[Rfam]
RNA: RNA S.aureus Orsay G
Organism: Staphylococcus hominis
RNA sequence: GUAACAGGGUAGAACGAUUUCAAACAAAGGGGUAGGGGCUAUAUAACAGAUAGCUCAAGGUGAGUCGUUCGGGUUACAUCGAAACAUCUUCAAUAUUUAUUACUUACUUUCCUUUCUAUUUUGUCGGCUAGCAAAUGACUAGCCGAUUUUUUA
Numbered sequence: 001g002u003a004a005c006a007g008g009g010u011a012g013a014a015c016g017a018u019u020u021c022a023a024a025c026a027a028a029g030g031g032g033u034a035g036g037g038g039c040u041a042u043a044u045a046a047c048a049g050a051u052a053g054c055u056c057a058a059g060g061u062g063a064g065u066c067g068u069u070c071g072g073g074u075u076a077c078a079u080c081g082a083a084a085c086a087u088c089u090u091c092a093a094u095a096u097u098u099a100u101u102a103c104u105u106a107c108u109u110u111c112c113u114u115u116c117u118a119u120u121u122u123g124u125c126g127g128c129u130a131g132c133a134a135a136u137g138a139c140u141a142g143c144c145g146a147u148u149u150u151u152u153a
Stems, first nucleotide, its partner, number of pairs: 001077005012070006018058002026115007037055006123147009